[Rfam]
RNA sequence: GGACGAUGAUAUUCUUUGUAACUUAAGGUCUCGUUCGUCGUAAUUGGCUCAAUGGGUCUUGCCGAUCAUCCUGAUAUAUCACCACCCAUAUUCUGAGGUCC
Numbered sequence: 001g002g003a004c005g006a007u008g009a010u011a012u013u014c015u016u017u018g019u020a021a022c023u024u025a026a027g028g029u030c031u032c033g034u035u036c037g038u039c040g041u042a043a044u045u046g047g048c049u050c051a052a053u054g055g056g057u058c059u060u061g062c063c064g065a066u067c068a069u070c071c072u073g074a075u076a077u078a079u080c081a082c083c084a085c086c087c088a089u090a091u092u093c094u095g096a097g098g099u100c101c
Base pairs, nucleotide, nucleotide: 001101002100003099004098051060052059
Shown here is a 101-nucleotide RNA sequence from Juglans regia, a member of the family "Small nucleolar RNA Z43". The organism belongs to Juglans, within Eukaryota. Rfam classes the family as a C/D-box small nucleolar RNA. Rfam links the family to the GO terms nucleolus and RNA processing. Pairs were carried over by alignment from the consensus structure, which was predicted with PFOLD. A reference for the family is Chen et al. (2003), "The high diversity of snoRNAs in plants: identification and comparative study of 120 snoRNA genes from Oryza sativa", Nucleic Acids Res.